[Rfam]
RNA sequence: CCGGUUCCGGUUCACCUUUCCCGCACCGGCGGGCCAGGACCCGGGGCC
Numbered sequence: 001c002c003g004g005u006u007c008c009g010g011u012u013c014a015c016c017u018u019u020c021c022c023g024c025a026c027c028g029g030c031g032g033g034c035c036a037g038g039a040c041c042c043g044g045g046g047c048c
Stems, first nucleotide, its partner, number of pairs: 003048003007044004015038003020033004
A member of the RNA family "L31-Actinobacteria ribosomal protein leader" from Prauserella isguenensis, 48 nucleotides long. The family is grouped with related families in Rfam's "Ribosomal Protein L31 Leader clan".